[Rfam]
RNA sequence: AAUUAUAGUAGAGGCGCAUGAUCAAAGAGUACAUUCACUGAAGGAUUAGGCCUGUUGAUGUGAAUGGAAAGGUGUGAUUGCCGAAAUAAGGAAUGACCUACUUUCAUUCUUUAUUGGGGCUGUUUCUGAAUAAGAGCAGUACUGUCAUACAUUUGUAUGGGGGGCUACAUGAAGG
Numbered sequence: 001a002a003u004u005a006u007a008g009u010a011g012a013g014g015c016g017c018a019u020g021a022u023c024a025a026a027g028a029g030u031a032c033a034u035u036c037a038c039u040g041a042a043g044g045a046u047u048a049g050g051c052c053u054g055u056u057g058a059u060g061u062g063a064a065u066g067g068a069a070a071g072g073u074g075u076g077a078u079u080g081c082c083g084a085a086a087u088a089a090g091g092a093a094u095g096a097c098c099u100a101c102u103u104u105c106a107u108u109c110u111u112u113a114u115u116g117g118g119g120c121u122g123u124u125u126c127u128g129a130a131u132a133a134g135a136g137c138a139g140u141a142c143u144g145u146c147a148u149a150c151a152u153u154u155g156u157a158u159g160g161g162g163g164g165c166u167a168c169a170u171g172a173a174g175g
Stems, first nucleotide, its partner, number of pairs: 008168004016081003023074002032066007085115012116143002119140007145160006

This 175-nucleotide sequence from Shouchella oshimensis belongs to the Rfam family "Lysine riboswitch aptamer".